[Rfam]
RNA sequence: GAGGAGUGAUGACCACAUACUUUGGUCCGUGUUCAUGAUCUGCCUCAUGGCAAUGAAAUUGCUCAAAGUUCUGACCUC
Numbered sequence: 001g002a003g004g005a006g007u008g009a010u011g012a013c014c015a016c017a018u019a020c021u022u023u024g025g026u027c028c029g030u031g032u033u034c035a036u037g038a039u040c041u042g043c044c045u046c047a048u049g050g051c052a053a054u055g056a057a058a059u060u061g062c063u064c065a066a067a068g069u070u071c072u073g074a075c076c077u078c
Stems, first nucleotide, its partner, number of pairs: 001078004